Record summary:
Rfam assigns this 133-nucleotide sequence from Raphanus sativus to the family "mir-393 microRNA precursor family". The pairing is the family consensus, mapped onto this sequence. The match comes from Rfam's covariance-model search (63 bits). The family has 27 seed sequences and 1,052 matches in Rfam 15.1.
RNA sequence: GAAGGAUGAAUCGAAAGGGAUAGCAUGAUCCAAAACCAAGCAAAUUUUUGGGAUUUCUUUGCCAAUAAUUAAGAAAAUAAUAGGGAGAAUUCACCUUACUUAGGAUCAAUGCGAUCCCUUUGGAUCCUUCCUC
Dot-bracket structure: ..((((.(.(((.((((((((.(((((((((...(................................................................)..)))))).))).)))))))).))).).)))).
Numbered sequence: 001g002a003a004g005g006a007u008g009a010a011u012c013g014a015a016a017g018g019g020a021u022a023g024c025a026u027g028a029u030c031c032a033a034a035a036c037c038a039a040g041c042a043a044a045u046u047u048u049u050g051g052g053a054u055u056u057c058u059u060u061g062c063c064a065a066u067a068a069u070u071a072a073g074a075a076a077a078u079a080a081u082a083g084g085g086a087g088a089a090u091u092c093a094c095c096u097u098a099c100u101u102a103g104g105a106u107c108a109a110u111g112c113g114a115u116c117c118c119u120u121u122g123g124a125u126c127c128u129u130c131c132u133c
Stems, first nucleotide, its partner, number of pairs: 003132004008127001010125003014121008023112003026108006035100001